RNA sequence: UAAAGACAAAGGCAAAUCUGUUGAAAAAUAGAGACGCAAAACCACAGAUCUAAUGUGAUAAAACACGACGAUGGCUGGGUUACCUGA
Numbered sequence: 001u002a003a004a005g006a007c008a009a010a011g012g013c014a015a016a017u018c019u020g021u022u023g024a025a026a027a028a029u030a031g032a033g034a035c036g037c038a039a040a041a042c043c044a045c046a047g048a049u050c051u052a053a054u055g056u057g058a059u060a061a062a063a064c065a066c067g068a069c070g071a072u073g074g075c076u077g078g079g080u081u082a083c084c085u086g087a
Stems, first nucleotide, its partner, number of pairs: 012037002017032006040081004045077003048072003055066003